[Rfam]
RNA sequence: CUACGCUGUCGGCUAACCCCGGCAGCGUAGUUUUAAGCGGGUCCGGAGCUCACAAAGCACUGGACCCUUCCUGAAAAGUAAAUGAUGGCUAUCAGGGGCAUCCGGUAAAAACCCGGUCUAUCUGCGGGGUCCCGUAGUGGCUUAACCAGUUGCUCAGGCACGCCGUGCUGCGGUUUCCACGCCGAUGGUGUUCCCUUAUCGAGGGUGACCA
Numbered sequence: 001c002u003a004c005g006c007u008g009u010c011g012g013c014u015a016a017c018c019c020c021g022g023c024a025g026c027g028u029a030g031u032u033u034u035a036a037g038c039g040g041g042u043c044c045g046g047a048g049c050u051c052a053c054a055a056a057g058c059a060c061u062g063g064a065c066c067c068u069u070c071c072u073g074a075a076a077a078g079u080a081a082a083u084g085a086u087g088g089c090u091a092u093c094a095g096g097g098g099c100a101u102c103c104g105g106u107a108a109a110a111a112c113c114c115g116g117u118c119u120a121u122c123u124g125c126g127g128g129g130u131c132c133c134g135u136a137g138u139g140g141c142u143u144a145a146c147c148a149g150u151u152g153c154u155c156a157g158g159c160a161c162g163c164c165g166u167g168c169u170g171c172g173g174u175u176u177c178c179a180c181g182c183c184g185a186u187g188g189u190g191u192u193c194c195c196u197u198a199u200c201g202a203g204g205g206u207g208a209c210c211a
Stems, first nucleotide, its partner, number of pairs: 001030012039067006048058003094196005099190002102116004118188005124182003128178002131173002136169004
Rfam assigns this 211-nucleotide RNA from Pseudomonas flexibilis to the family "sucA-II RNA". It scores 105 bits against the family's covariance model. The base pairs follow the family's consensus structure, which is taken from published work.